[Rfam]
About this RNA:
Molybdenum/Tungsten riboswitch aptamer (Moco RNA motif): a 135-nucleotide sequence from Novilysobacter concretionis. For this family Rfam cites "in molybdenum cofactor and tungsten cofactor metabolism" (Regulski et al., Mol Microbiol, 2008). It scores 86 bits against the family's covariance model.

RNA sequence: CGUCCCGCGCAACUCCCAGCCGCGUCGCCUGUGUCCGGUGGAUAUGGCAGCGCGGCCGUGGUCUUCGUGACCACCGGGCCGGUCUGGAAACGCACCGGUCUCCCGUAUUUGGAAAGGAGUCACAUGAAAAACCUC
Numbered sequence: 001c002g003u004c005c006c007g008c009g010c011a012a013c014u015c016c017c018a019g020c021c022g023c024g025u026c027g028c029c030u031g032u033g034u035c036c037g038g039u040g041g042a043u044a045u046g047g048c049a050g051c052g053c054g055g056c057c058g059u060g061g062u063c064u065u066c067g068u069g070a071c072c073a074c075c076g077g078g079c080c081g082g083u084c085u086g087g088a089a090a091c092g093c094a095c096c097g098g099u100c101u102c103c104c105g106u107a108u109u110u111g112g113a114a115a116g117g118a119g120u121c122a123c124a125u126g127a128a129a130a131a132c133c134u135c
Stems, first nucleotide, its partner, number of pairs: 003129001006126001012120005019056007027048003033043004059073005076101008085092002102112002